[Rfam]
The family of this 95-nucleotide sequence from Galemys pyrenaicus is "mir-340 microRNA precursor family". Pairs were carried over by alignment from the consensus structure, which was predicted with RNAalifold. The source organism's lineage runs through Eukaryota, Opisthokonta, Bilateria, Gnathostomata and Galemys. Rfam 15.1 lists 129 matches to the family in 129 species. Its family is annotated with miRNA-mediated post-transcriptional gene silencing and RISC complex in the Gene Ontology.
RNA sequence: CUGUACCUGGUGUGAUUAUAAAGCAGUGAGACUGGUUGUCAUGUGUAGUUUAUGGGAUCCGUCUCAGUUACUUUGUAGACAUACCUGGUUCUCUU
Numbered sequence: 001c002u003g004u005a006c007c008u009g010g011u012g013u014g015a016u017u018a019u020a021a022a023g024c025a026g027u028g029a030g031a032c033u034g035g036u037u038g039u040c041a042u043g044u045g046u047a048g049u050u051u052a053u054g055g056g057a058u059c060c061g062u063c064u065c066a067g068u069u070a071c072u073u074u075g076u077a078g079a080c081a082u083a084c085c086u087g088g089u090u091c092u093c094u095u
Base pairs, nucleotide, nucleotide: 006088007087009085011083012082013081014080016078017077018076019075020074021073022072023071027066028065029064030063031062032061034059035058036057037056039055040054041053042052043051